[Rfam]
RNA sequence: AGCCCUGUGGUGAAUUUACACGUUGAAUUGCAAAUUCAGAGAAGCAGCUUCAAUUCUGCCGGGGCUU
Numbered sequence: 001a002g003c004c005c006u007g008u009g010g011u012g013a014a015u016u017u018a019c020a021c022g023u024u025g026a027a028u029u030g031c032a033a034a035u036u037c038a039g040a041g042a043a044g045c046a047g048c049u050u051c052a053a054u055u056c057u058g059c060c061g062g063g064g065c066u067u
Stems, first nucleotide, its partner, number of pairs: 001066007010021003023039005044059004
The record is a 67-nucleotide RNA sequence, which matches "tRNA" in Rfam. Transfer RNA (tRNA) molecules are approximately 80 nucleotides in length. Rfam classes the family as a transfer RNA.